A member of the RNA family "c-di-AMP riboswitch aptamer (ydaO/yuaA leader)" from Oryzihumus leptocrescens, 216 nucleotides long.
[Rfam]
RNA sequence: CGAUGUGGCAUGCCGAAUCCUGCCGCCACGUUCGAGAUGAGUUCACACACCGUUUGGCAGGAGCGGGGGACCCACUUGCGGGGCGUCGUGAGACGCCCCUUGGGGUGAAGCCCUCAGGCGGCUGGCCGACCCAGGUCGGAUGGCUGCCUCAGGGCCGGGUGCAUACCUCCCACCCGAACCCGACAGCUCACCUCGUAGGCACUGGAGAGGUCUGUU
Numbered sequence: 001c002g003a004u005g006u007g008g009c010a011u012g013c014c015g016a017a018u019c020c021u022g023c024c025g026c027c028a029c030g031u032u033c034g035a036g037a038u039g040a041g042u043u044c045a046c047a048c049a050c051c052g053u054u055u056g057g058c059a060g061g062a063g064c065g066g067g068g069g070a071c072c073c074a075c076u077u078g079c080g081g082g083g084c085g086u087c088g089u090g091a092g093a094c095g096c097c098c099c100u101u102g103g104g105g106u107g108a109a110g111c112c113c114u115c116a117g118g119c120g121g122c123u124g125g126c127c128g129a130c131c132c133a134g135g136u137c138g139g140a141u142g143g144c145u146g147c148c149u150c151a152g153g154g155c156c157g158g159g160u161g162c163a164u165a166c167c168u169c170c171c172a173c174c175c176g177a178a179c180c181c182g183a184c185a186g187c188u189c190a191c192c193u194c195g196u197a198g199g200c201a202c203u204g205g206a207g208a209g210g211u212c213u214g215u216u
Stems, first nucleotide, its partner, number of pairs: 011201004018062008063196006073102002103181003111154004157175004